L2-Alphaproteobacteria ribosomal protein leader: a 63-nucleotide sequence. The literature on the family includes a 2020 paper in BMC Microbiol by Eckert and Weinberg, "Discovery of 20 novel ribosomal leader candidates in bacteria and archaea".
RNA sequence: GGGGAUCUUCGGAGCCCUUCACCCGAGACCCGCAAGGGUCGCGAAGCAAACGGAAGACAGAGA
Numbered sequence: 001g002g003g004g005a006u007c008u009u010c011g012g013a014g015c016c017c018u019u020c021a022c023c024c025g026a027g028a029c030c031c032g033c034a035a036g037g038g039u040c041g042c043g044a045a046g047c048a049a050a051c052g053g054a055a056g057a058c059a060g061a062g063a
Base pairs, nucleotide, nucleotide: 001018002017003016004015006014008012027040028039029038030037031036